RNA sequence: UUGCCCAAUGAUUAUAGCAAGACGCGUUAUUACGAGGACUAAUGCUGGACCUCUGCUUCUUAUCUCCUCCUCUUUUCUUCUUUGUCCCUUCUCCACUUUCACUUUAACCCCUCAUUAUCCUUGGGUGUCCAGCGUCCUGUGAGCAAGAUUAUGAGAUAUGAGGGCAA
Numbered sequence: 001u002u003g004c005c006c007a008a009u010g011a012u013u014a015u016a017g018c019a020a021g022a023c024g025c026g027u028u029a030u031u032a033c034g035a036g037g038a039c040u041a042a043u044g045c046u047g048g049a050c051c052u053c054u055g056c057u058u059c060u061u062a063u064c065u066c067c068u069c070c071u072c073u074u075u076u077c078u079u080c081u082u083u084g085u086c087c088c089u090u091c092u093c094c095a096c097u098u099u100c101a102c103u104u105u106a107a108c109c110c111c112u113c114a115u116u117a118u119c120c121u122u123g124g125g126u127g128u129c130c131a132g133c134g135u136c137c138u139g140u141g142a143g144c145a146a147g148a149u150u151a152u153g154a155g156a157u158a159u160g161a162g163g164g165c166a167a
Stems, first nucleotide, its partner, number of pairs: 001167006035081004

A member of the RNA family "Small nucleolar RNA SNORD97" from Chrysemys picta, 167 nucleotides long. Its family is annotated with nucleolus and RNA processing in the Gene Ontology. A reference for the family is Vitali et al. (2003), "Identification of 13 novel human modification guide RNAs", Nucleic Acids Res.